[Rfam]
Small nucleolar RNA SNORD18: a 73-nucleotide RNA sequence from Owenia fusiformis.
It is annotated as a C/D-box small nucleolar RNA.
Rfam 15.1 lists 2,622 matches to the family in 960 species.
Lineage of the source: Eukaryota > Polychaeta > Canalipalpata > Sabellida > Owenia.
The match comes from Rfam's covariance-model search (42 bits).
The family's consensus secondary structure was predicted with PFOLD.
For this family Rfam cites "Two different snoRNAs are encoded in introns of amphibian and human L1 ribosomal protein genes" (Prislei et al., Nucleic Acids Res, 1993).

RNA sequence: UAUAGGUGAUGAUUUUAACCAUAUCCAUUGGUCCGUGUUUCUGAUUCAAGUGAUGUGCGAGCUUUCUGAUGUA
Numbered sequence: 001u002a003u004a005g006g007u008g009a010u011g012a013u014u015u016u017a018a019c020c021a022u023a024u025c026c027a028u029u030g031g032u033c034c035g036u037g038u039u040u041c042u043g044a045u046u047c048a049a050g051u052g053a054u055g056u057g058c059g060a061g062c063u064u065u066c067u068g069a070u071g072u073a
Stems, first nucleotide, its partner, number of pairs: 001073004